[Rfam]
RNA sequence: UAAUUAUCAAUACUCCGAGUUCUUUUGACCUAAAGCUUUAGGGCUAUGGUAAAGAACCACUUAACGGUUGUUCGGGAAACUGAGCAGCCCCCCAUUUGGAAAGGAGGUUGUGUGGGUGUGUU
Numbered sequence: 001u002a003a004u005u006a007u008c009a010a011u012a013c014u015c016c017g018a019g020u021u022c023u024u025u026u027g028a029c030c031u032a033a034a035g036c037u038u039u040a041g042g043g044c045u046a047u048g049g050u051a052a053a054g055a056a057c058c059a060c061u062u063a064a065c066g067g068u069u070g071u072u073c074g075g076g077a078a079a080c081u082g083a084g085c086a087g088c089c090c091c092c093c094a095u096u097u098g099g100a101a102a103g104g105a106g107g108u109u110g111u112g113u114g115g116g117u118g119u120g121u122u
Stems, first nucleotide, its partner, number of pairs: 004115001006113001013106004019057007028050003034045004066089010091099002
This 122-nucleotide sequence from Thermodesulfobium narugense belongs to the Rfam family "Molybdenum/Tungsten riboswitch aptamer (Moco RNA motif)".